Rfam assigns this 113-nucleotide RNA from Priestia filamentosa to the family "RNA Staph. aureus E (RoxS)". Rfam links the family to the GO term regulation of translational initiation. By type it is a small RNA. On this family, see Durand et al., PLoS Genet 2015: "A nitric oxide regulated small RNA controls expression of genes involved in redox homeostasis in Bacillus subtilis". It was shown to be regulated by the presence of nitric oxide (NO). In Bacillus subtilis it controls expression of genes with functions related to oxidative stress and oxidation-reduction reactions and it was renamed RoxS (for related to oxidative stress). The family's consensus secondary structure is taken from published work.
RNA sequence: GUGAAAUUAAUCACAAACAUAUACCCCUUUGUUUGACCGUGAAAAAUUUCUCCCAUCCCCUUGUUGUCUUAAUGACAACGAGAAAGACCCAGCAAAUUUGCUGGGUCUUUCUU
Numbered sequence: 001g002u003g004a005a006a007u008u009a010a011u012c013a014c015a016a017a018c019a020u021a022u023a024c025c026c027c028u029u030u031g032u033u034u035g036a037c038c039g040u041g042a043a044a045a046a047u048u049u050c051u052c053c054c055a056u057c058c059c060c061u062u063g064u065u066g067u068c069u070u071a072a073u074g075a076c077a078a079c080g081a082g083a084a085a086g087a088c089c090c091a092g093c094a095a096a097u098u099u100g101c102u103g104g105g106u107c108u109u110u111c112u113u
Base pairs, nucleotide, nucleotide: 003050004049005048006047007046008045011042012041013040014039018035019034020031021030066076068074083110084109085108086107087106088105089104090103091102092101093100